[Rfam]
RNA sequence: CCUAGUAACACCUGGUUCUACUGCACUGUGGGACCUAGUGUUACUAGGUCCCACAGUGCAGUAGAACCAGGUGUUACUAGGUC
Number, nucleotide and partner (000 for none) at each position: 001c000002c000003u000004a000005g000006u000007a000008a082009c081010a072011c071012c070013u069014g068015g067016u066017u065018c064019u063020a062021c061022u060023g059024c058025a057026c056027u055028g054029u053030g000031g051032g050033a049034c048035c047036u046037a045038g044039u043040g000041u000042u000043a039044c038045u037046a036047g035048g034049u033050c032051c031052c000053a029054c028055a027056g026057u025058g024059c023060a022061g021062u020063a019064g018065a017066a016067c015068c014069a013070g012071g011072u010073g000074u000075u000076a000077c000078u000079a000080g000081g009082u008083c000
Shown here is an 83-nucleotide sequence from Hucho hucho, a member of the family "MIR474 microRNA precursor family". The literature on the family includes a 2005 paper in Plant Cell by Lu et al., "Novel and mechanical stress-responsive MicroRNAs in Populus trichocarpa that are absent from Arabidopsis". The source organism's lineage runs through Eukaryota, Metazoa, Craniata, Euteleosteomorpha and Hucho.